[Rfam]
RNA sequence: GGGGCACGGCCGCCGAAUCCGCGAUCUCGCGGAACCGGGGACCCAUCGCAUCUGGGGUGAAUCGGACGCCCGCCCAGCGGGCGCCCGUAGGGCACUUCCACGCCCGAACCCGUCAGCUAACCCGGUAGGCGGCAUGGAAGCAAGGA
Dot-bracket structure: ..........((((...(((((......)))))((((((....((.......))(((.....(((...................)))..((((........))))...))).........)))))).))))...............